[Rfam]
RNA sequence: CUGCAUGUAGCAACCCGGGCUCCUCUGAAAAUUCAUAUGAAGAAAGAAGUCCCAAAGCUCGUGCGAUAACGACGCCGUUUAGUGUUGCAGAUUUGCCGCUGUACCAUUCUCACGGCCUAUUUGUGUCAAAACAACGGCAACAACC
Dot-bracket structure: ..(((((..((.....((((((.(((..............)))..).)))))....)).))))).........((((((...((.((((((...(((................)))...)))))).))....)))))).......

This 145-nucleotide RNA from Salvia splendens belongs to the Rfam family "small nucleolar RNA snoR134". Rfam 15.1 lists 792 matches to the family in 228 species. Taxonomically the source falls in core Calosphace (Eukaryota, Spermatophyta, asterids, Salvia). On this family, see Chen and Wu, Nucleic Acids Res 2009: "Mining small RNA sequencing data: a new approach to identify small nucleolar RNAs in Arabidopsis".